[Rfam]
RNA sequence: CAUGUACCCUUUGACCCUCCUUAAUUUAACCAAAUGAACUAAAAUUUUAAAAUGACACAACUUUUUGAAAAACUAGUUCAUUUGUUUGAACUAAGGAGGGUCAAUGGGUACCCUG
Number, nucleotide and partner (000 for none) at each position: 001c000002a000003u000004g111005u110006a109007c108008c107009c106010u000011u104012u103013g102014a101015c100016c099017c098018u097019c096020c095021u094022u093023a092024a000025u090026u089027u088028a087029a086030c000031c084032a083033a082034a081035u080036g079037a078038a077039c076040u075041a074042a000043a000044a000045u000046u000047u000048u000049a000050a000051a000052a000053u000054g000055a000056c000057a000058c000059a000060a000061c000062u000063u000064u000065u000066u000067g000068a000069a000070a000071a000072a000073c000074u041075a040076g039077u038078u037079c036080a035081u034082u033083u032084g031085u000086u029087u028088g027089a026090a025091c000092u023093a022094a021095g020096g019097a018098g017099g016100g015101u014102c013103a012104a011105u000106g009107g008108g007109u006110a005111c004112c000113c000114u000115g000
RNA: MIR5070 microRNA precursor family